Selenocysteine insertion sequence 1: a 62-nucleotide sequence from Perca fluviatilis.
The family's RNA type in Rfam is cis-regulatory element.
A reference for the family is Walczak et al. (1996), "A novel RNA structural motif in the selenocysteine insertion element of eukaryotic selenoprotein mRNAs", RNA.

[Rfam]
RNA sequence: GUGUGUUAAUGAUGGUCUGUCUCUAAACUCUAGAGAGGGAGCGGACCUGAUAUCCAACACUC
Number, nucleotide and partner (000 for none) at each position: 001g062002u000003g060004u059005g058006u000007u000008a000009a000010u000011g000012a000013u000014g047015g046016u045017c044018u043019g042020u041021c000022u039023c038024u000025a000026a000027a000028c037029u036030c035031u000032a000033g000034a000035g030036a029037g028038g023039g022040a000041g020042c019043g018044g017045a016046c015047c014048u000049g000050a000051u000052a000053u000054c000055c000056a000057a000058c005059a004060c003061u000062c001